RNA sequence: GAACACCUCAAAGAAUCGCUGUCAAAGCACCACAUACGGGGCAGUAAUUUUUUAAAUUAUUUGCUCAAAUUUAUUGCUUUGGGGAAAGUCCUCGGACAUAUGGCAGAAAGUGUCGCCCAUAGUGUGGCAUUACCAUUCGUUGAUCUUCUCUAUGCCAAAGAAAGAGUUUACUCUUGAGGCUGUUAGGAGUGUCACGAUUGGUUUCGUUAGUCAUAGCACAGUUAUGCGAUUGUGGUCUUUUCUGAUCUUCUUUGAGGGUAGAGAGGUCAUAACACAACGAGGCUUACUCUUGGGAUGUU
Dot-bracket structure: .((((.(((((..((((((..(((((((..........((((((................)))))).........)))))))...[[[.[[[[........((((.....))))((..........)).(((....(((.(((......((..(((......((((....))))...))).......))..)))))).)))........................)))))).(((((((((...................))))))))).........]]]]]]]....))))).))))